[Rfam]
Nucleotides: 068
Stems, first nucleotide, its partner, number of pairs: 001068005
Number, partner (000 for none) and nucleotide at each position: 001068g002067u003066g004065c005064a006000a007000a008000u009000g010000a011000u012000g013000u014000a015000a016000a017000c018000u019000u020000u021000u022000u023000u024000u025000u026000a027000u028000c029000a030000c031000u032000g033000a034000c035000u036000a037000a038000a039000g040000u041000g042000a043000u044000g045000c046000u047000u048000c049000c050000a051000a052000a053000g054000g055000a056000a057000c058000c059000a060000c061000u062000g063000a064005u065004g066003c067002a068001c
The family of this 68-nucleotide RNA sequence from Semnornis frantzii is "Small nucleolar RNA SNORD42". The family's RNA type in Rfam is C/D-box small nucleolar RNA. The family's consensus secondary structure was predicted with PFOLD. The literature on the family includes a 2001 paper in EMBO J by Huttenhofer et al., "RNomics: an experimental approach that identifies 201 candidates for novel, small, non-messenger RNAs in mouse". Its family is annotated with nucleolus and RNA processing in the Gene Ontology.